The record is a 136-nucleotide RNA sequence from Salmo salar, which matches "Small nucleolar RNA SNORA13" in Rfam. The match comes from Rfam's covariance-model search (68 bits). The family is grouped with related families in Rfam's "SNORA13 clan". Pairs were carried over by alignment from the consensus structure, which was predicted with CMfinder. The family has 50 seed sequences and 1,034 matches in Rfam 15.1. It is annotated as an H/ACA-box small nucleolar RNA.

RNA sequence: UGCCUUUAUGUGUUGCCCAUUCAUUGUCUCCAGAGUGAAUGAGGUGUCAACCAAGGCAUACAGUAACCUUGUGAUUGUCUUUGUUUGGAAGGAGUCUCCACUGAUUCCUUUCAAUAACUGCAAGAACACAACAGUA
Numbered sequence: 001u002g003c004c005u006u007u008a009u010g011u012g013u014u015g016c017c018c019a020u021u022c023a024u025u026g027u028c029u030c031c032a033g034a035g036u037g038a039a040u041g042a043g044g045u046g047u048c049a050a051c052c053a054a055g056g057c058a059u060a061c062a063g064u065a066a067c068c069u070u071g072u073g074a075u076u077g078u079c080u081u082u083g084u085u086u087g088g089a090a091g092g093a094g095u096c097u098c099c100a101c102u103g104a105u106u107c108c109u110u111u112c113a114a115u116a117a118c119u120g121c122a123a124g125a126a127c128a129c130a131a132c133a134g135u136a
Base pairs, nucleotide, nucleotide: 002057003056004055005054006053011049012048014046015045016044017043018041019040020039021038022037023036024035025034070128071127072126075120077118078117085114086113087112088111089109094105095104